[Rfam]
Nucleotides: 057
Stems, first nucleotide, its partner, number of pairs: 018037004024031002
Number, partner (000 for none) and nucleotide at each position: 001000u002000g003000c004000a005000a006000g007000u008000a009000u010000u011000u012000u013000a014000c015000g016000a017000u018037u019036a020035a021034g022000a023000a024031g025030c026000a027000a028000c029000u030025g031024u032000c033000c034021u035020u036019u037018g038000u039000a040000c041000a042000g043000a044000u045000u046000a047000u048000g049000g050000a051000u052000a053000a054000a055000u056000c057000u